[Rfam]
RNA sequence: AGUUGUAAUUCCGGCAAUCUGGAAGCGCUUCGGACGCGGGUUCGAUUCCCGCCACCUCCACCUAAGAGCAUCGUUAGUAUGCGUGGGUUGGUAUACCUAAUGUUCUUAGGUGGGGGUGCACUGGUUUCGACGGGGUGAUUGAAGGAAAGCAGGCAACUCGUCAGGCGAUCGACGUUAAUGAAGCAAAUCUCUAAACGCCAACGAUGAGCGUUUCGCAAUAGCCGCUUAA
Numbered sequence: 001a002g003u004u005g006u007a008a009u010u011c012c013g014g015c016a017a018u019c020u021g022g023a024a025g026c027g028c029u030u031c032g033g034a035c036g037c038g039g040g041u042u043c044g045a046u047u048c049c050c051g052c053c054a055c056c057u058c059c060a061c062c063u064a065a066g067a068g069c070a071u072c073g074u075u076a077g078u079a080u081g082c083g084u085g086g087g088u089u090g091g092u093a094u095a096c097c098u099a100a101u102g103u104u105c106u107u108a109g110g111u112g113g114g115g116g117u118g119c120a121c122u123g124g125u126u127u128c129g130a131c132g133g134g135g136u137g138a139u140u141g142a143a144g145g146a147a148a149g150c151a152g153g154c155a156a157c158u159c160g161u162c163a164g165g166c167g168a169u170c171g172a173c174g175u176u177a178a179u180g181a182a183g184c185a186a187a188u189c190u191c192u193a194a195a196c197g198c199c200a201a202c203g204a205u206g207a208g209c210g211u212u213u214c215g216c217a218a219u220a221g222c223c224g225c226u227u228a229a
Base pairs, nucleotide, nucleotide: 001158002157003156004155005154026137027136028135030133031132032131036052037051038050039049040048053118054117055116056115057114058113059112060111061110062109063108064107065106066105067104068103069102070101071100159174160173161172162171
A member of the RNA family "permuted transfer-messenger RNA" from an uncultured beta proteobacterium, 229 nucleotides long. Bacterial tmRNA, also known as 10Sa RNA or SsrA, is named for its dual tRNA and mRNA-like properties. Its role is to liberate the mRNA from a stalled ribosome. The literature on the family includes a 2002 paper in Nucleic Acids Res by Williams, "The tmRNA Website: invasion by an intron". The sequence is in the family's curated seed alignment.